Rfam assigns this 592-nucleotide part of an RNA from Fusarium longipes to the family "Eukaryotic large subunit ribosomal RNA". The base pairs follow the family's consensus structure, which is taken from published work. NCBI's taxonomy places the organism under Eukaryota, Pezizomycotina, Sordariomycetes, Hypocreales, Fusarium sambucinum species complex. Its family is annotated with structural constituent of ribosome and ribosome in the Gene Ontology.

RNA sequence: CGGGGAAAGAAGACCCUGUUGAGCUUGACUCUAGUUUGACAUUGUGAAAAGACAUAGGAGGUGUAGAAUAGGUGGGAGCUUCGGCGCCGGUGAAAUACCACUACUCCUAUUGUUUUUUUACUUAUUCAAUGAAGCGGGGCUGGAUUUACGUCCAACUUCUGGUUUUAAGGUCCUUCGCGGGCCGACCCGGGUUGAAGACAUUGUCAGGUGGGGAGUUUGGCUGGGGCGGCACAUCUGUUAAACCAUAACGCAGGUGUCCUAAGGGGGGCUCAUGGAGAACAGAAAUCUCCAGUAGAACAAAAGGGUAAAAGUCCCCUUGAUUUUGAUUUUCAGUGUGAAUACAAACCAUGAAAGUGUGGCCUAUCGAUCCUUUAGUCCCUCGACAUUUGAGGCUAGAGGUGCCAGAAAAGUUACCACAGGGAUAACUGGCUUGUGGCGGCCAAGCGUUCAUAGCGACGUCGCUUUUUGAUCCUUCGAUGUCGGCUCUUCCUAUCAUACCGAAGCAGAAUUCGGUAAGCGUUGGAUUGUUCACCCACUAAUAGGGAACGUGAGCUGGGUUUAGACCGUCGUGAGACAGGUUAGUUUUACCCUA
Numbered sequence: 001c002g003g004g005g006a007a008a009g010a011a012g013a014c015c016c017u018g019u020u021g022a023g024c025u026u027g028a029c030u031c032u033a034g035u036u037u038g039a040c041a042u043u044g045u046g047a048a049a050a051g052a053c054a055u056a057g058g059a060g061g062u063g064u065a066g067a068a069u070a071g072g073u074g075g076g077a078g079c080u081u082c083g084g085c086g087c088c089g090g091u092g093a094a095a096u097a098c099c100a101c102u103a104c105u106c107c108u109a110u111u112g113u114u115u116u117u118u119u120a121c122u123u124a125u126u127c128a129a130u131g132a133a134g135c136g137g138g139g140c141u142g143g144a145u146u147u148a149c150g151u152c153c154a155a156c157u158u159c160u161g162g163u164u165u166u167a168a169g170g171u172c173c174u175u176c177g178c179g180g181g182c183c184g185a186c187c188c189g190g191g192u193u194g195a196a197g198a199c200a201u202u203g204u205c206a207g208g209u210g211g212g213g214a215g216u217u218u219g220g221c222u223g224g225g226g227c228g229g230c231a232c233a234u235c236u237g238u239u240a241a242a243c244c245a246u247a248a249c250g251c252a253g254g255u256g257u258c259c260u261a262a263g264g265g266g267g268g269c270u271c272a273u274g275g276a277g278a279a280c281a282g283a284a285a286u287c288u289c290c291a292g293u294a295g296a297a298c299a300a301a302a303g304g305g306u307a308a309a310a311g312u313c314c315c316c317u318u319g320a321u322u323u324u325g326a327u328u329u330u331c332a333g334u335g336u337g338a339a340u341a342c343a344a345a346c347c348a349u350g351a352a353a354g355u356g357u358g359g360c361c362u363a364u365c366g367a368u369c370c371u372u373u374a375g376u377c378c379c380u381c382g383a384c385a386u387u388u389g390a391g392g393c394u395a396g397a398g399g400u401g402c403c404a405g406a407a408a409a410g411u412u413a414c415c416a417c418a419g420g421g422a423u424a425a426c427u428g429g430c431u432u433g434u435g436g437c438g439g440c441c442a443a444g445c446g447u448u449c450a451u452a453g454c455g456a457c458g459u460c461g462c463u464u465u466u467u468g469a470u471c472c473u474u475c476g477a478u479g480u481c482g483g484c485u486c487u488u489c490c491u492a493u494c495a496u497a498c499c500g501a502a503g504c505a506g507a508a509u510u511c512g513g514u515a516a517g518c519g520u521u522g523g524a525u526u527g528u529u530c531a532c533c534c535a536c537u538a539a540u541a542g543g544g545a546a547c548g549u550g551a552g553c554u555g556g557g558u559u560u561a562g563a564c565c566g567u568c569g570u571g572a573g574a575c576a577g578g579u580u581a582g583u584u585u586u587a588c589c590c591u592a
Base pairs, nucleotide, nucleotide: 003591004590005589007586008585015420016419017418018417020416021415022412023411024410025409026408028216029215030214031213035208036207037206038205039204040203041202044121045120046119047118048117049116050115051114052113053112054110055109056108057107058106059105060104071102072101073100074099075098078085079084125196126195127194128193129192135189136188137187138186143152144151169183170182171181172180173179219232220230221229222228233255234254235253236252237251238250258359259358264316265315266314267313268312269311270296271295273291274290275289276288277287278286297306298305321345322344323343326340327339328338329337347356348355349354370398371397372396373395374394375393378392379391380390381389429470431468433467435463436462437461438460439459440458444454445453481556482554483553484552485551486548487545488544489543490542491541494519497514498513499512500511501510502509521535522534523533525531562580563579564578565577566575567574568573